[Rfam]
RNA sequence: UGGCGCCCAACGUGGGGCCUGGCAUGGGGGAUUCAACGAGGGAGCCGUUCGAGAGCCCGGGUACAAGCAGAUAGUGAAAGUGAAUUCCGAGGCCAACCCGUGCGAGUGCCUGCCGCGCCGCUCAGCCACGGUGAGUGAACGGCAGCCCCCUUCCCCUUCUCCGGCAUGGGUCAAGAAUUAAGCAAACAUGAACUGUUUUAAAAAGCCUCAGUAAGGCACUCAAGACACAAGGGAUUAAGGUAAAAAAAAAAGAUUUAUUACAGUAUUUUAAGUUUAUUCAUGAGGUUUGCCCAU
Numbered sequence: 001u002g003g004c005g006c007c008c009a010a011c012g013u014g015g016g017g018c019c020u021g022g023c024a025u026g027g028g029g030g031a032u033u034c035a036a037c038g039a040g041g042g043a044g045c046c047g048u049u050c051g052a053g054a055g056c057c058c059g060g061g062u063a064c065a066a067g068c069a070g071a072u073a074g075u076g077a078a079a080g081u082g083a084a085u086u087c088c089g090a091g092g093c094c095a096a097c098c099c100g101u102g103c104g105a106g107u108g109c110c111u112g113c114c115g116c117g118c119c120g121c122u123c124a125g126c127c128a129c130g131g132u133g134a135g136u137g138a139a140c141g142g143c144a145g146c147c148c149c150c151u152u153c154c155c156c157u158u159c160u161c162c163g164g165c166a167u168g169g170g171u172c173a174a175g176a177a178u179u180a181a182g183c184a185a186a187c188a189u190g191a192a193c194u195g196u197u198u199u200a201a202a203a204a205g206c207c208u209c210a211g212u213a214a215g216g217c218a219c220u221c222a223a224g225a226c227a228c229a230a231g232g233g234a235u236u237a238a239g240g241u242a243a244a245a246a247a248a249a250a251a252g253a254u255u256u257a258u259u260a261c262a263g264u265a266u267u268u269u270a271a272g273u274u275u276a277u278u279c280a281u282g283a284g285g286u287u288u289g290c291c292c293a294u
Base pairs, nucleotide, nucleotide: 006030007029008028012025013024014023035049036048037047038046087131088130091127092126096122098120101117102116103115104114136173137172138171140170180220182217183216229269230268231267232266234264235263238256239255240254241253281293282292284290

A member of the RNA family "Mason-Pfizer monkey virus packaging signal" from Octodon degus, 294 nucleotides long. NCBI's taxonomy places the organism under Eukaryota, Metazoa, Craniata, Hystricomorpha, Octodon. It scores 70 bits against the family's covariance model. The literature on the family includes a 2004 paper in Virus Res by Mustafa et al., "Mutational analysis of the predicted secondary RNA structure of the Mason-Pfizer monkey virus packaging signal". Rfam 15.1 lists 2,921 matches to the family in 53 species. Its family is annotated with viral genome packaging in the Gene Ontology. By type it is a cis-regulatory element.